RNA sequence: CAAGUGCUGGUCUGAGCGGACUGAGGAGAGCACCACAGUGGUCACCACCCAGUCCGCCCAGGUUGGAGCUGC
Numbered sequence: 001c002a003a004g005u006g007c008u009g010g011u012c013u014g015a016g017c018g019g020a021c022u023g024a025g026g027a028g029a030g031c032a033c034c035a036c037a038g039u040g041g042u043c044a045c046c047a048c049c050c051a052g053u054c055c056g057c058c059c060a061g062g063u064u065g066g067a068g069c070u071g072c
Stems, first nucleotide, its partner, number of pairs: 003070003007066008016057008025046002028043002031040003
Record summary
This 72-nucleotide RNA from Pan troglodytes belongs to the Rfam family "mir-622 microRNA precursor family". The match comes from Rfam's covariance-model search (90 bits). The organism belongs to Pan, within Eukaryota. Rfam links the family to the GO terms miRNA-mediated post-transcriptional gene silencing and RISC complex. Rfam 15.1 lists 453 matches to the family in 28 species.